[Rfam]
RNA sequence: UGUCAUCGCUGAAUUAGAGAUCGGCGAUUGAUGUAUAUCAACAUAACUAGUUAGGAGUUAUCAAAUGUCUCUAAGUACAGAAAAAAAAGCGGCAAUCGUUGCAGAAUUUGGUCGUGAUGCA
Number, nucleotide and partner (000 for none) at each position: 001u000002g000003u000004c000005a000006u000007c026008g025009c024010u023011g022012a021013a000014u000015u000016a000017g000018a000019g000020a000021u012022c011023g010024g009025c008026g007027a000028u000029u000030g000031a000032u000033g000034u000035a000036u000037a000038u000039c000040a000041a000042c000043a000044u000045a000046a000047c000048u000049a000050g000051u075052u074053a000054g072055g071056a070057g069058u000059u000060a000061u000062c000063a000064a000065a000066u000067g000068u000069c057070u056071c055072u054073a000074a052075g051076u000077a000078c000079a000080g000081a000082a000083a000084a000085a000086a000087a000088a000089g000090c000091g000092g000093c000094a000095a000096u000097c000098g000099u000100u000101g000102c000103a000104g000105a000106a000107u000108u000109u000110g000111g000112u000113c000114g000115u000116g000117a000118u000119g000120c000121a000
Ribosomal S15 leader: a 121-nucleotide RNA from Pasteurella felis. The base pairs follow the family's consensus structure, which is taken from published work. Rfam's curators write: The E. coli Ribosomal S15 gene 5' UTR can form two alternative structures. One that is a series of three hairpins, The other includes a pseudoknot. This structure causes translational regulation of the S15 protein. The alignment of this family contains only the final two hairpins which are conserved in other species, and also includes the complete region that forms the alternate structures. The source organism's lineage runs through Bacteria, Pseudomonadota, Gammaproteobacteria, Pasteurellales and Pasteurella.